[Rfam]
Record summary: The record is an 85-nucleotide RNA from Malassezia pachydermatis, which matches "tRNA" in Rfam. By type it is a transfer RNA.

RNA sequence: GGAUGUGUGACAGAGUGGUUUAAUGUACCUGGCUUGAGUCUAGGAGUUCUUUUCAGAACCAGGAGUUCGAAUCUCCUCGCGUCCG
Numbered sequence: 001g002g003a004u005g006u007g008u009g010a011c012a013g014a015g016u017g018g019u020u021u022a023a024u025g026u027a028c029c030u031g032g033c034u035u036g037a038g039u040c041u042a043g044g045a046g047u048u049c050u051u052u053u054c055a056g057a058a059c060c061a062g063g064a065g066u067u068c069g070a071a072u073c074u075c076c077u078c079g080c081g082u083c084c085g
Stems, first nucleotide, its partner, number of pairs: 001084007010026003028044005061077005
A search with the family's covariance model found it, with a score of 49 bits.